A member of the RNA family "MIR9560 microRNA precursor family" from Arabidopsis thaliana, 99 nucleotides long.
[Rfam]
RNA sequence: GUGUGUAUUGACAGGUGGUGGAACAAAUAUGAGUUUUAAUUAGUUUCUCUAAUUAAUAUAUAAACUCAUAUUUAGUUCUAUCUCCUGUUGAAGCACACA
Numbered sequence: 001g002u003g004u005g006u007a008u009u010g011a012c013a014g015g016u017g018g019u020g021g022a023a024c025a026a027a028u029a030u031g032a033g034u035u036u037u038a039a040u041u042a043g044u045u046u047c048u049c050u051a052a053u054u055a056a057u058a059u060a061u062a063a064a065c066u067c068a069u070a071u072u073u074a075g076u077u078c079u080a081u082c083u084c085c086u087g088u089u090g091a092a093g094c095a096c097a098c099a
Stems, first nucleotide, its partner, number of pairs: 001098003005094002008091008017082008026072011

Background
A search with the family's covariance model found it, with a score of 80 bits. Pairs were carried over by alignment from the consensus structure, which was predicted with RNAalifold.